[Rfam]
The family of this 115-nucleotide RNA from Clostridium sp. BL8 is "Glycine riboswitch aptamer".
RNA sequence: AUGAUAUUUUCGGGAGAUAAUCUGAUGCUAUUGAAGCAAAGGGUAGCCGAAGAAGCAAGUGAUUGUUUAGCCAAACAAUCAUGAAACUCUCAGGCAAAAGGACCGCAAAUGGACA
Numbered sequence: 001a002u003g004a005u006a007u008u009u010u011c012g013g014g015a016g017a018u019a020a021u022c023u024g025a026u027g028c029u030a031u032u033g034a035a036g037c038a039a040a041g042g043g044u045a046g047c048c049g050a051a052g053a054a055g056c057a058a059g060u061g062a063u064u065g066u067u068u069a070g071c072c073a074a075a076c077a078a079u080c081a082u083g084a085a086a087c088u089c090u091c092a093g094g095c096a097a098a099a100g101g102a103c104c105g106c107a108a109a110u111g112g113a114c115a
Base pairs, nucleotide, nucleotide: 006110007109008108009107011105012104013103020044021043022042023041046095047094048093049091050090054088055087059082060081061080062079063078064077065076066075067074068073
This family represents the bacterial glycine riboswitch. Glycine riboswitches usually consist of two metabolite-binding aptamers domains with similar structures in tandem. The aptamers cooperatively bind glycine to regulate the expression of downstream genes.